[Rfam]
RNA sequence: AUGAACGUAUUGGGAGAGCCUGUAGAAUAUAUUACAGCACCGAAGGAGCAAUUCUUCCCACCAGCCGGGAAGAAAAAACUCUCAGGUACCAGGACCAGUACAGGAUG
Numbered sequence: 001a002u003g004a005a006c007g008u009a010u011u012g013g014g015a016g017a018g019c020c021u022g023u024a025g026a027a028u029a030u031a032u033u034a035c036a037g038c039a040c041c042g043a044a045g046g047a048g049c050a051a052u053u054c055u056u057c058c059c060a061c062c063a064g065c066c067g068g069g070a071a072g073a074a075a076a077a078a079c080u081c082u083c084a085g086g087u088a089c090c091a092g093g094a095c096c097a098g099u100a101c102a103g104g105a106u107g
Stems, first nucleotide, its partner, number of pairs: 007101007020037004039087003042083002046081003052074008